[Rfam]
RNA sequence: CCGGGGGAGGUGACAAAACCGUUACCAUUACUGAGCUUUAGUAAUGGUAAGGGUUAUGUCGCCUCUUCUCAA
Numbered sequence: 001c002c003g004g005g006g007g008a009g010g011u012g013a014c015a016a017a018a019c020c021g022u023u024a025c026c027a028u029u030a031c032u033g034a035g036c037u038u039u040a041g042u043a044a045u046g047g048u049a050a051g052g053g054u055u056a057u058g059u060c061g062c063c064u065c066u067u068c069u070c071a072a
Base pairs, nucleotide, nucleotide: 007065008064009063011061012060013059017055018054019053020052022050023049024048025047026046027045028044029043030042031041032040033039